[Rfam]
RNA sequence: AGUGGUCUUCAGGGCGGGGUGAAAUUCCCCACCGGCGGUAGGCAGGCCGAAAGGUUUGCGAGCCCGCGAGCGCUUCGGCGUACGCAAGUACAACGAAGGUCAGCAGACCCAGUCCAAUGCUGGGGCCGACGGUCAUAGUCCGGAUGAAAGAAGACGCGC
Numbered sequence: 001a002g003u004g005g006u007c008u009u010c011a012g013g014g015c016g017g018g019g020u021g022a023a024a025u026u027c028c029c030c031a032c033c034g035g036c037g038g039u040a041g042g043c044a045g046g047c048c049g050a051a052a053g054g055u056u057u058g059c060g061a062g063c064c065c066g067c068g069a070g071c072g073c074u075u076c077g078g079c080g081u082a083c084g085c086a087a088g089u090a091c092a093a094c095g096a097a098g099g100u101c102a103g104c105a106g107a108c109c110c111a112g113u114c115c116a117a118u119g120c121u122g123g124g125g126c127c128g129a130c131g132g133u134c135a136u137a138g139u140c141c142g143g144a145u146g147a148a149a150g151a152a153g154a155c156g157c158g159c
Stems, first nucleotide, its partner, number of pairs: 005155006017029003031139002033128002035067004062126002070104002108124005130142003
Rfam assigns this 159-nucleotide RNA from Caenimonas koreensis to the family "FMN riboswitch aptamer (RFN element)".